[Rfam]
RNA: mir-166 microRNA precursor family
RNA sequence: GUUGAGGGGGAUGCUGUCUGAUUCGAGACCAUUCACUACUUUAAGCACGCAUUCAUCUUUCGAAUGAUCUCGGACCAGGCUUCAUUCCCCCCAAC
Numbered sequence: 001g002u003u004g005a006g007g008g009g010g011a012u013g014c015u016g017u018c019u020g021a022u023u024c025g026a027g028a029c030c031a032u033u034c035a036c037u038a039c040u041u042u043a044a045g046c047a048c049g050c051a052u053u054c055a056u057c058u059u060u061c062g063a064a065u066g067a068u069c070u071c072g073g074a075c076c077a078g079g080c081u082u083c084a085u086u087c088c089c090c091c092c093a094a095c
Stems, first nucleotide, its partner, number of pairs: 001095004006090008016080005024072003